[Rfam]
RNA sequence: GAAAUUCUUCAGGGCAGGGUGAAAUUCCCGAUCGGCAGUAAAGUCUGCGAGCGCUUUGGCGCAGGAUUCGGUGCGAUUCCGAAACCGACAGUAUAGUCUGGAUGGGAGAAGAAUAAA
Numbered sequence: 001g002a003a004a005u006u007c008u009u010c011a012g013g014g015c016a017g018g019g020u021g022a023a024a025u026u027c028c029c030g031a032u033c034g035g036c037a038g039u040a041a042a043g044u045c046u047g048c049g050a051g052c053g054c055u056u057u058g059g060c061g062c063a064g065g066a067u068u069c070g071g072u073g074c075g076a077u078u079c080c081g082a083a084a085c086c087g088a089c090a091g092u093a094u095a096g097u098c099u100g101g102a103u104g105g106g107a108g109a110a111g112a113a114u115a116a117a
Stems, first nucleotide, its partner, number of pairs: 004114007017029003031097002033087002035048004043085002051062003067083005089100003